[Rfam]
RNA sequence: UGUUCCACUGAUUUGCUGCUCUAGUCUUUUAGUGAUAUGAGCAGUUAUACACAUGGGAGAGAACAAUGUUAGGCUAUUGUGAACGGAAAUGGAGUAACCAUUUAAUCUCUUCUGUGAAGUCCAGAUAUUG
Numbered sequence: 001u002g003u004u005c006c007a008c009u010g011a012u013u014u015g016c017u018g019c020u021c022u023a024g025u026c027u028u029u030u031a032g033u034g035a036u037a038u039g040a041g042c043a044g045u046u047a048u049a050c051a052c053a054u055g056g057g058a059g060a061g062a063a064c065a066a067u068g069u070u071a072g073g074c075u076a077u078u079g080u081g082a083a084c085g086g087a088a089a090u091g092g093a094g095u096a097a098c099c100a101u102u103u104a105a106u107c108u109c110u111u112c113u114g115u116g117a118a119g120u121c122c123a124g125a126u127a128u129u130g
Stems, first nucleotide, its partner, number of pairs: 003058005015045007022037002025035002069124002072121004078116004086109002089106002092103004